[Rfam]
RNA sequence: GCAAAUUCUCAGGGCGGGGUGUAAUUCCCCACCGGCGGUAAUCAAUUUCCAUUGAAAGCCCGCGAGCGCUUGGCACAAAACGCCAAGGACAGCAGAUCUGGUGACGGCAUUUCUUGCCUAUUCCAGAGCCGACGGUAAUUCACAAUCAGCUUAAUAUUGGCUCAUUGUUGAUAAGUCCGGAUGGAAGAGAAUGUAA
Number, nucleotide and partner (000 for none) at each position: 001g000002c000003a194004a000005a192006u191007u190008c189009u188010c187011a000012g000013g000014g000015c000016g000017g029018g028019g027020u000021g000022u000023a000024a000025u000026u000027c019028c018029c017030c000031a000032c000033c131034g130035g063036c062037g061038g060039u000040a000041a000042u000043c000044a000045a000046u000047u000048u000049c000050c000051a000052u000053u000054g000055a000056a000057a000058g129059c128060c038061c037062g036063c035064g000065a000066g093067c092068g000069c000070u000071u000072g000073g000074c000075a000076c000077a000078a000079a000080a000081c000082g000083c000084c000085a000086a000087g000088g000089a000090c000091a000092g067093c066094a000095g000096a000097u127098c126099u125100g124101g123102u000103g000104a000105c000106g000107g000108c000109a000110u000111u000112u000113c000114u000115u000116g000117c000118c000119u000120a000121u000122u000123c101124c100125a099126g098127a097128g059129c058130c034131g033132a000133c179134g178135g177136u000137a000138a000139u000140u000141c000142a000143c000144a000145a000146u000147c000148a000149g000150c000151u000152u000153a000154a000155u000156a000157u000158u000159g000160g000161c000162u000163c000164a000165u000166u000167g000168u000169u000170g000171a000172u000173a000174a000175g000176u000177c135178c134179g133180g000181a000182u000183g000184g000185a000186a000187g010188a009189g008190a007191a006192u005193g000194u003195a000196a000
The family of this 196-nucleotide sequence from Shewanella gelidii is "FMN riboswitch aptamer (RFN element)". Its family is annotated with FMN binding in the Gene Ontology. NCBI's taxonomy places the organism under Bacteria, Pseudomonadati, Gammaproteobacteria, Shewanellaceae, Shewanella.